[Rfam]
RNA: Bacteroidete tryptophan peptide leader RNA
RNA sequence: CAAGUUAUAGUUCACGUGUUAUGAAACAAACAAUGGUAAAUACAUUUUUCUGGUGGCACCUCUUGCAGCUUCAAAAAGUCGUAAGGGAACAUCAGUCAUGUGUAUAUAUACCAUAAUAAAUAUAUAGUAAAAAUAUAACAAAGGGCUGUC
Numbered sequence: 001c002a003a004g005u006u007a008u009a010g011u012u013c014a015c016g017u018g019u020u021a022u023g024a025a026a027c028a029a030a031c032a033a034u035g036g037u038a039a040a041u042a043c044a045u046u047u048u049u050c051u052g053g054u055g056g057c058a059c060c061u062c063u064u065g066c067a068g069c070u071u072c073a074a075a076a077a078g079u080c081g082u083a084a085g086g087g088a089a090c091a092u093c094a095g096u097c098a099u100g101u102g103u104a105u106a107u108a109u110a111c112c113a114u115a116a117u118a119a120a121u122a123u124a125u126a127g128u129a130a131a132a133a134u135a136u137a138a139c140a141a142a143g144g145g146c147u148g149u150c
Stems, first nucleotide, its partner, number of pairs: 036109003040105006047098001050095003056090001059087003066081001068079003